The record is a 65-nucleotide RNA from Haliotis rufescens, which matches "mir-1991 microRNA precursor family" in Rfam. The base pairs follow the family's consensus structure, which was predicted with RNAalifold.
[Rfam]
RNA sequence: CUUCUUACCCUGUUAAUCGGAGAAGUGCUAUGAGCUCCCUGCUUCUCGUUUCACAGGGUAUAUUU
Numbered sequence: 001c002u003u004c005u006u007a008c009c010c011u012g013u014u015a016a017u018c019g020g021a022g023a024a025g026u027g028c029u030a031u032g033a034g035c036u037c038c039c040u041g042c043u044u045c046u047c048g049u050u051u052c053a054c055a056g057g058g059u060a061u062a063u064u065u
Stems, first nucleotide, its partner, number of pairs: 006060008015051002018048002021046006
The organism belongs to Haliotis, within Eukaryota. Rfam's curators put it in the seed alignment.